[Rfam]
RNA sequence: UCAGCCGAUACUGGAGAGCGUGCGGGGCUUACAGCCUUGCACCACCGAAGGAGCAAGGGCUCGGUGCAUGGCGCAUUGGGCUUGAAUCUCUCAGGUACAAGGGACAGUGGGAGCGGC
Numbered sequence: 001u002c003a004g005c006c007g008a009u010a011c012u013g014g015a016g017a018g019c020g021u022g023c024g025g026g027g028c029u030u031a032c033a034g035c036c037u038u039g040c041a042c043c044a045c046c047g048a049a050g051g052a053g054c055a056a057g058g059g060c061u062c063g064g065u066g067c068a069u070g071g072c073g074c075a076u077u078g079g080g081c082u083u084g085a086a087u088c089u090c091u092c093a094g095g096u097a098c099a100a101g102g103g104a105c106a107g108u109g110g111g112a113g114c115g116g117c
Base pairs, nucleotide, nucleotide: 009109010108011107012106013105020042021041022040023039024038025037026036027035044096045095046094047092048091051090052089053088057083058082059081060080061079062078063077064076065075066074067073

This 117-nucleotide sequence from Betaproteobacteria bacterium MOLA814 belongs to the Rfam family "Glycine riboswitch aptamer". NCBI's taxonomy places the organism under Bacteria, Pseudomonadati, Pseudomonadota, Betaproteobacteria.